[Rfam]
RNA sequence: ACGGGAAGAGAGGCAAUCGCCGUCGCUAUCAAAGCGAGGGAGGAAAGUCUGGACUUCGCAGGAUCGGAUACCAGUGAAAGACUGGGGGCCGAAAGGCUACGGAAAGUGUCACAGAAAAUAUUCCGCGGCGUAAGCCGACAGGGUGAAAUGCUUUGUUUGAUGAACAAAGCCCCACUAGAGGAGACUCUAGGGGUGAUAAACCCUAUCCGAAGCAAGACAAAGGUAAAGCGCUUAAGGUGUUCCGCCAAGCUUUCAACAAGUCGCUUGAGAACUUUGGUGACAGGGUUCCUAGAUGAAUGAUUGUCCAAUGACAGAAUCCGGCUUAUCCUCUUCCCUUUUUU
Numbered sequence: 001a002c003g004g005g006a007a008g009a010g011a012g013g014c015a016a017u018c019g020c021c022g023u024c025g026c027u028a029u030c031a032a033a034g035c036g037a038g039g040g041a042g043g044a045a046a047g048u049c050u051g052g053a054c055u056u057c058g059c060a061g062g063a064u065c066g067g068a069u070a071c072c073a074g075u076g077a078a079a080g081a082c083u084g085g086g087g088g089c090c091g092a093a094a095g096g097c098u099a100c101g102g103a104a105a106g107u108g109u110c111a112c113a114g115a116a117a118a119u120a121u122u123c124c125g126c127g128g129c130g131u132a133a134g135c136c137g138a139c140a141g142g143g144u145g146a147a148a149u150g151c152u153u154u155g156u157u158u159g160a161u162g163a164a165c166a167a168a169g170c171c172c173c174a175c176u177a178g179a180g181g182a183g184a185c186u187c188u189a190g191g192g193g194u195g196a197u198a199a200a201c202c203c204u205a206u207c208c209g210a211a212g213c214a215a216g217a218c219a220a221a222g223g224u225a226a227a228g229c230g231c232u233u234a235a236g237g238u239g240u241u242c243c244g245c246c247a248a249g250c251u252u253u254c255a256a257c258a259a260g261u262c263g264c265u266u267g268a269g270a271a272c273u274u275u276g277g278u279g280a281c282a283g284g285g286u287u288c289c290u291a292g293a294u295g296a297a298u299g300a301u302u303g304u305c306c307a308a309u310g311a312c313a314g315a316a317u318c319c320g321g322c323u324u325a326u327c328c329u330c331u332u333c334c335c336u337u338u339u340u341u
Stems, first nucleotide, its partner, number of pairs: 001337001003335008011326001012305007020040002023037005045324003049321005054212004061243003066208005071085005086100001087098004101203002106201002108197003123142002126137004150170006173192001175190006216262003225253005236246003269288008
The family of this 341-nucleotide RNA from Waddlia chondrophila is "Bacterial RNase P class A". A search with the family's covariance model found it, with a score of 232 bits. By type it is a ribozyme. The family's consensus secondary structure is taken from published work.